[Rfam]
RNA sequence: UGCUCAGUGAUUAAGCCAUGUAGGUUCAUGGCAUAUAAGCUAUUCUGAGUCUAUAGGAUGCCAUCAAACGUUAUGAGAGCA
Numbered sequence: 001u002g003c004u005c006a007g008u009g010a011u012u013a014a015g016c017c018a019u020g021u022a023g024g025u026u027c028a029u030g031g032c033a034u035a036u037a038a039g040c041u042a043u044u045c046u047g048a049g050u051c052u053a054u055a056g057g058a059u060g061c062c063a064u065c066a067a068a069c070g071u072u073a074u075g076a077g078a079g080c081a
Stems, first nucleotide, its partner, number of pairs: 001081005
RNA: Small nucleolar RNA U54
Organism: Hordeum vulgare